TPP riboswitch aptamer (THI element): a 90-nucleotide RNA from Weissella paramesenteroides. Pairs were carried over by alignment from the consensus structure, which is taken from published work. About the family: Vitamin B(1) in its active form thiamin pyrophosphate (TPP) is an essential coenzyme that is synthesised by coupling of pyrimidine and thiazole moieties in bacteria.

[Rfam]
RNA sequence: UUAACGUAUCUGGGGUGCUGAAAAGCUGAGAAUAUACCCACUGAACCUGAUUUGGUUAAUACCUGCGCAGGAAGAUACAGUCCAUAUAUA
Numbered sequence: 001u002u003a004a005c006g007u008a009u010c011u012g013g014g015g016u017g018c019u020g021a022a023a024a025g026c027u028g029a030g031a032a033u034a035u036a037c038c039c040a041c042u043g044a045a046c047c048u049g050a051u052u053u054g055g056u057u058a059a060u061a062c063c064u065g066c067g068c069a070g071g072a073a074g075a076u077a078c079a080g081u082c083c084a085u086a087u088a089u090a
Stems, first nucleotide, its partner, number of pairs: 006078005011040004016034001017026003046071004052065001054063002